RNA sequence: UGUAAGUAUUUUACGAUUAAGAAGCAACUGUCUUUCGUACAGAUCAUUUAUUGAUCU
Number, nucleotide and partner (000 for none) at each position: 001u000002g000003u000004a000005a000006g000007u000008a000009u000010u000011u000012u000013a000014c000015g000016a000017u000018u037019a000020a035021g034022a033023a000024g031025c030026a000027a000028c000029u000030g025031u024032c000033u022034u021035u020036c000037g018038u000039a000040c000041a000042g000043a000044u000045c000046a000047u000048u000049u000050a000051u000052u000053g000054a000055u000056c000057u000
RNA: Plastid-rps18 3UTR RNA